Description: The family of this 353-nucleotide RNA from Pseudomonas aeruginosa is "transfer-messenger RNA".

Nucleotides: 353
Base pairs, nucleotide, nucleotide: 001349002348003347004346005345006344007343020322021321022320023319024318025317026316035309036308037307039304040303043297044296045295046294047293048067049066050065051064055082056081057080058079059078060077061076116136117135118134119133120132121131122130123129137173138172139171140170141169142168146163147162148161153187154186155185156184157183191219192218193217194216203234204233205232206231207230237271238270239269240268241267244264245263248260249259250258251289252288253287254286255284256283257282326342327341328340329339330338
Number, partner (000 for none) and nucleotide at each position: 001349g002348g003347g004346g005345c006344c007343g008000a009000u010000u011000a012000g013000g014000a015000u016000u017000c018000g019000a020322c021321g022320c023319c024318g025317g026316u027000a028000a029000c030000a031000a032000a033000a034000c035309u036308u037307g038000a039304g040303g041000g042000g043297c044296a045295u046294g047293c048067c049066g050065a051064g052000c053000u054000g055082g056081u057080a058079g059078c060077a061076g062000a063000a064051c065050u066049c067048g068000u069000a070000a071000a072000u073000u074000c075000g076061c077060u078059g079058c080057u081056g082055c083000a084000a085000a086000c087000u088000u089000a090000u091000a092000g093000u094000u095000g096000c097000c098000a099000a100000c101000g102000a103000c104000g105000a106000c107000a108000a109000c110000u111000a112000c113000g114000c115000u116136c117135u118134a119133g120132c121131u122130g123129c124000u125000u126000a127000a128000u129123g130122c131121g132120g133119c134118u135117a136116g137173c138172a139171g140170u141169c142168g143000c144000u145000a146163g147162g148161g149000g150000a151000u152000g153187c154186c155185u156184g157183u158000a159000a160000a161148c162147c163146c164000g165000a166000a167000a168142c169141g170140a171139c172138u173137g174000u175000c176000a177000g178000a179000u180000a181000g182000a183157a184156c185155a186154g187153g188000a189000u190000c191219g192218c193217c194216g195000c196000c197000a198000a199000g200000u201000u202000c203234g204233c205232u206231g207230u208000a209000g210000a211000c212000g213000u214000a215000a216194c217193g218192g219191c220000u221000a222000a223000a224000a225000c226000u227000c228000a229000u230207a231206c232205a233204g234203c235000u236000c237271g238270c239269u240268c241267c242000a243000a244264g245263c246000a247000c248260c249259c250258u251289g252288c253287c254286a255284c256283u257282c258250g259249g260248g261000c262000g263245g264244c265000g266000c267241g268240g269239a270238g271237u272000u273000a274000a275000c276000u277000c278000a279000g280000u281000a282257g283256a284255g285000c286254u287253g288252g289251c290000u291000a292000a293047g294046c295045a296044u297043g298000u299000a300000g301000a302000a303040c304039c305000g306000a307037u308036a309035g310000c311000g312000g313000a314000g315000a316026g317025c318024u319023g320022g321021c322020g323000g324000a325000c326342g327341g328340g329339g330338g331000u332000u333000c334000a335000a336000a337000u338330c339329c340328c341327c342326c343007c344006g345005g346004c347003u348002c349001c350000a351000c352000c353000a
The sequence is in the family's curated seed alignment. Rfam links the family to the GO term RNA catabolic process. Rfam classes the family as a non-coding RNA gene.